The record is a 109-nucleotide sequence, which matches "L31-Corynebacteriaceae ribosomal protein leader" in Rfam. The literature on the family includes a 2020 paper in BMC Microbiol by Eckert and Weinberg, "Discovery of 20 novel ribosomal leader candidates in bacteria and archaea".

RNA sequence: ACUCAGGCACGAUCUCUGCCAAGGUAAGUUGUCGUUGUUAUUAAGUGAUAGUGACGCUUUUGGCCUGUGAAGAUGCGGAGAACCGACCUGAAGUUUCAAUCCUGAGGGA
Dot-bracket structure: (((((((.....(((((((..((((.....................................))))........))))))).....)))).)))...............